The record is a 125-nucleotide RNA sequence from Winogradskyella flava, which matches "SAM riboswitch aptamer (S box leader)" in Rfam.
The source organism's lineage runs through Bacteria, Pseudomonadati, Flavobacteriales, Flavobacteriaceae and Winogradskyella.
Its family is annotated with regulation of gene expression in the Gene Ontology.
The base pairs follow the family's consensus structure, which is taken from published work.
The match comes from Rfam's covariance-model search (76 bits).

[Rfam]
RNA sequence: AUGUUAUUAAGAAAGGUGGAGGGAUUAGACCCUUUGAAACCUUAGCAACCCUUAGACUUACUAAGAAGGUGCUAAAUUCUACUUGAAUAUGCAAGUCAUUUUUUGCAAUUUCGGAUAGAUAACAC
Numbered sequence: 001a002u003g004u005u006a007u008u009a010a011g012a013a014a015g016g017u018g019g020a021g022g023g024a025u026u027a028g029a030c031c032c033u034u035u036g037a038a039a040c041c042u043u044a045g046c047a048a049c050c051c052u053u054a055g056a057c058u059u060a061c062u063a064a065g066a067a068g069g070u071g072c073u074a075a076a077u078u079c080u081a082c083u084u085g086a087a088u089a090u091g092c093a094a095g096u097c098a099u100u101u102u103u104u105g106c107a108a109u110u111u112c113g114g115a116u117a118g119a120u121a122a123c124a125c
Stems, first nucleotide, its partner, number of pairs: 002124007013043005021032003026081004044073004049069002051065004077117001082114002085111003